[Rfam]
RNA sequence: CUCUUCUGCAUUAACAGAACUCUGCUAUAAUUGUGUGAUCCAGAAUUAUCUUUUGUUUGAUGCAAUGAUGCUAGCCGAGUAUUGAGCAGAAGGAGAUGACUGUGCAUUGUGCUGCAAAUGAGACGUGGUCGAACCUCUUUCUUAAUGUUCAUUGGUCUCUGUCUCAAGGCUCACUGCCACAAAU
Numbered sequence: 001c002u003c004u005u006c007u008g009c010a011u012u013a014a015c016a017g018a019a020c021u022c023u024g025c026u027a028u029a030a031u032u033g034u035g036u037g038a039u040c041c042a043g044a045a046u047u048a049u050c051u052u053u054u055g056u057u058u059g060a061u062g063c064a065a066u067g068a069u070g071c072u073a074g075c076c077g078a079g080u081a082u083u084g085a086g087c088a089g090a091a092g093g094a095g096a097u098g099a100c101u102g103u104g105c106a107u108u109g110u111g112c113u114g115c116a117a118a119u120g121a122g123a124c125g126u127g128g129u130c131g132a133a134c135c136u137c138u139u140u141c142u143u144a145a146u147g148u149u150c151a152u153u154g155g156u157c158u159c160u161g162u163c164u165c166a167a168g169g170c171u172c173a174c175u176g177c178c179a180c181a182a183a184u
Stems, first nucleotide, its partner, number of pairs: 020079002024075004030069004036060001041055005104177003108173002111170001126155001128153001131150003
This 184-nucleotide sequence from Myripristis murdjan belongs to the Rfam family "Small nucleolar RNA SNORA81".
Lineage of the source: Eukaryota > Eumetazoa > Ctenosquamata > Holocentriformes > Myripristis.
On this family, see Gu et al., Nucleic Acids Res 2005: "A novel experimental approach for systematic identification of box H/ACA snoRNAs from eukaryotes".